[Rfam]
RNA sequence: AGGUUCGUGGUUCGCAAUUAUCCCACACAAAAAAACUAAGGAGGU
Numbered sequence: 001a002g003g004u005u006c007g008u009g010g011u012u013c014g015c016a017a018u019u020a021u022c023c024c025a026c027a028c029a030a031a032a033a034a035a036c037u038a039a040g041g042a043g044g045u
Stems, first nucleotide, its partner, number of pairs: 007026004016037001
Rfam assigns this 45-nucleotide RNA from Pediococcus cellicola to the family "PreQ1 (pre queuosine) riboswitch aptamer". Rfam 15.1 lists 873 matches to the family in 692 species. Lineage of the source: Bacteria > Bacillati > Lactobacillales > Lactobacillaceae > Pediococcus. It scores 44 bits against the family's covariance model. Rfam describes the family as follows. This family is a bacterial riboswitch that binds to the metabolite preQ1, an intermediate in the biosynthesis of the modified nucleoside queuosine from GTP. One example of this riboswitch is located in the leader of the Bacillus subtilis ykvJKLM (queCDEF) operon which encodes four genes necessary for queuosine production. PreQ1 binding to the riboswitch aptamer is thought to induce premature transcription termination within the leader to down-regulate expression of these genes. The pairing is the family consensus, mapped onto this sequence.